ALIL pseudoknot: a 132-nucleotide RNA sequence from Geodermatophilus marinus. NCBI's taxonomy places the organism under Bacteria, Actinomycetota, Actinomycetes, Geodermatophilales, Geodermatophilus. Rfam links the family to the GO term positive regulation of translational frameshifting. A search with the family's covariance model found it, with a score of 69 bits. The family's consensus secondary structure is taken from published work.

[Rfam]
RNA sequence: GGCGUUUUUCGCGUCGGCGGAGCUCGACCGCCGACUGCGCUGAUCUGCGACUACAUCGACGCGCACAAGCAGCGCUUCGGGGUCGAGCCGAUCUGCCGCGUGCUCACCGUGCACGGGCUCAAGAUCGCCCCG
Numbered sequence: 001g002g003c004g005u006u007u008u009u010c011g012c013g014u015c016g017g018c019g020g021a022g023c024u025c026g027a028c029c030g031c032c033g034a035c036u037g038c039g040c041u042g043a044u045c046u047g048c049g050a051c052u053a054c055a056u057c058g059a060c061g062c063g064c065a066c067a068a069g070c071a072g073c074g075c076u077u078c079g080g081g082g083u084c085g086a087g088c089c090g091a092u093c094u095g096c097c098g099c100g101u102g103c104u105c106a107c108c109g110u111g112c113a114c115g116g117g118c119u120c121a122a123g124a125u126c127g128c129c130c131c132g
Stems, first nucleotide, its partner, number of pairs: 016032005078132005089127002092124003